Shown here is an 80-nucleotide RNA from Balaenoptera musculus, a member of the family "Small nucleolar RNA U105B". Rfam links the family to the GO terms RNA processing and nucleolus. By type it is a C/D-box small nucleolar RNA.

[Rfam]
RNA sequence: CGCUCUUCGGCCGAUGACAGCACGGCUGCUGAGCCUCUGUGAUUGCUUAAUUUCAAAGUACACGCUCUGAUGGACCGUGG
Numbered sequence: 001c002g003c004u005c006u007u008c009g010g011c012c013g014a015u016g017a018c019a020g021c022a023c024g025g026c027u028g029c030u031g032a033g034c035c036u037c038u039g040u041g042a043u044u045g046c047u048u049a050a051u052u053u054c055a056a057a058g059u060a061c062a063c064g065c066u067c068u069g070a071u072g073g074a075c076c077g078u079g080g
Stems, first nucleotide, its partner, number of pairs: 006074004010021002013018001030049004
It scores 65 bits against the family's covariance model. A reference for the family is Yang et al. (2006), "snoSeeker: an advanced computational package for screening of guide and orphan snoRNA genes in the human genome", Nucleic Acids Res.